[Rfam]
RNA sequence: GGCUGGUCUGAAGGUAGUGACUUGAUUGUUCACAGUCAGUUACAGAUGGAGCUCCUUGUUCUACUCCUUCCCCCCUUCUCAAUAGAGCACUUGACUAGUCUUAA
Numbered sequence: 001g002g003c004u005g006g007u008c009u010g011a012a013g014g015u016a017g018u019g020a021c022u023u024g025a026u027u028g029u030u031c032a033c034a035g036u037c038a039g040u041u042a043c044a045g046a047u048g049g050a051g052c053u054c055c056u057u058g059u060u061c062u063a064c065u066c067c068u069u070c071c072c073c074c075c076u077u078c079u080c081a082a083u084a085g086a087g088c089a090c091u092u093g094a095c096u097a098g099u100c101u102u103a104a
Stems, first nucleotide, its partner, number of pairs: 001100008010092002014088002016083001018081003035065001038062002
Dot-bracket structure: ((((((((.((..(((.(((..............(..((.....................))..).............))).)...))..))))))))))....

Shown here is a 104-nucleotide sequence from Microcebus murinus, a member of the family "Y RNA".
The family's consensus secondary structure is taken from published work.
About the family: Y RNAs are components of the Ro ribonucleoprotein particle (Ro RNP), in association with Ro60 and La proteins. The Y RNAs and Ro60 and La proteins are well conserved, but the function of the Ro RNP is not known. In humans the RNA component can be one of four small RNAs -- hY1, hY3, hY4 and hY5. These small RNAs are predicted to fold into a conserved secondary structure containing three stem structures. The largest of the four, hY1, contains an additional hairpin. This family includes a significant number of annotated pseudogenes and the model is expected to discriminate poorly between real and Y RNA related pseudogenes.
The match comes from Rfam's covariance-model search (57 bits).
The literature on the family includes a 2000 paper in Nucleic Acids Res by Teunissen et al., "Conserved features of Y RNAs: a comparison of experimentally derived secondary structures".
Rfam classes the family as a non-coding RNA gene.